A member of the RNA family "mir-2060 microRNA precursor family" from Branchiostoma lanceolatum, 87 nucleotides long.
[Rfam]
RNA sequence: UCAGUGUGGAUGGUGUUCAGUACCAAGGACAGGUCUGUUCUCCUACAUGUGGAUGGUGUUCAGCACCAAGGACAGGCCUGUGCCCCA
Numbered sequence: 001u002c003a004g005u006g007u008g009g010a011u012g013g014u015g016u017u018c019a020g021u022a023c024c025a026a027g028g029a030c031a032g033g034u035c036u037g038u039u040c041u042c043c044u045a046c047a048u049g050u051g052g053a054u055g056g057u058g059u060u061c062a063g064c065a066c067c068a069a070g071g072a073c074a075g076g077c078c079u080g081u082g083c084c085c086c087a
Stems, first nucleotide, its partner, number of pairs: 001076002004073002011068007019060007027048001031044003
Rfam links the family to the GO terms RISC complex and miRNA-mediated post-transcriptional gene silencing.